[Rfam]
Shown here is an 86-nucleotide RNA from Artemisia annua, a member of the family "small nucleolar RNA snoR114".
The literature on the family includes a 2009 paper in Nucleic Acids Res by Chen and Wu, "Mining small RNA sequencing data: a new approach to identify small nucleolar RNAs in Arabidopsis".
The match comes from Rfam's covariance-model search (57 bits).
The source organism's lineage runs through Eukaryota, Mesangiospermae, eudicotyledons, Gunneridae and Artemisia.

RNA sequence: AAGCUGUGAUGAUUAUUGCGCAUCUGUUGAGGUUGGGUCCUCACAAUUAUCUUAUUAAAGAUUAAAUAAUUAGCGCUUCUGAGCUU
Numbered sequence: 001a002a003g004c005u006g007u008g009a010u011g012a013u014u015a016u017u018g019c020g021c022a023u024c025u026g027u028u029g030a031g032g033u034u035g036g037g038u039c040c041u042c043a044c045a046a047u048u049a050u051c052u053u054a055u056u057a058a059a060g061a062u063u064a065a066a067u068a069a070u071u072a073g074c075g076c077u078u079c080u081g082a083g084c085u086u
Base pairs, nucleotide, nucleotide: 001086002085003084004083